[Rfam]
RNA sequence: GCCCAAAGUCGCACGUGCCUGUGGGUGUCCGCCGGGUUCUCGAAUGGUGAGAAUAACCGGUAAGGUACCUGGAAUUAACCCCUCCAGUUAUUCUGUUGGCCAACCAGCAGAGCGAGGACAUCUUGAAGCAACGACGGUGCGGGCCUUU
Numbered sequence: 001g002c003c004c005a006a007a008g009u010c011g012c013a014c015g016u017g018c019c020u021g022u023g024g025g026u027g028u029c030c031g032c033c034g035g036g037u038u039c040u041c042g043a044a045u046g047g048u049g050a051g052a053a054u055a056a057c058c059g060g061u062a063a064g065g066u067a068c069c070u071g072g073a074a075u076u077a078a079c080c081c082c083u084c085c086a087g088u089u090a091u092u093c094u095g096u097u098g099g100c101c102a103a104c105c106a107g108c109a110g111a112g113c114g115a116g117g118a119c120a121u122c123u124u125g126a127a128g129c130a131a132c133g134a135c136g137g138u139g140c141g142g143g144c145c146u147u148u
Stems, first nucleotide, its partner, number of pairs: 001144004008135004016130003023123008031061005038052005069087005088115002091112001094109006
RNA: Alphaproteobacterial sRNA ar45